[Rfam]
RNA sequence: UUAUCCCGUGCGGGAGAGUCCGAGCCAGUCUCGGCGCCGAAGGAGCAAAUCCUCCCCGGAACCUCUCAGGCGCAAGGACCGUGCGGGUGAG
Dot-bracket structure: .....((((((((......((((.......)))).(((((..(((....(.......)....))))).))).......)))))))).....
Numbered sequence: 001u002u003a004u005c006c007c008g009u010g011c012g013g014g015a016g017a018g019u020c021c022g023a024g025c026c027a028g029u030c031u032c033g034g035c036g037c038c039g040a041a042g043g044a045g046c047a048a049a050u051c052c053u054c055c056c057c058g059g060a061a062c063c064u065c066u067c068a069g070g071c072g073c074a075a076g077g078a079c080c081g082u083g084c085g086g087g088u089g090a091g
Stems, first nucleotide, its partner, number of pairs: 006086008020034004036071003039067002043065003050058001

Shown here is a 91-nucleotide RNA, a member of the family "Glycine riboswitch aptamer". The pairing is the family consensus, mapped onto this sequence. It scores 68 bits against the family's covariance model.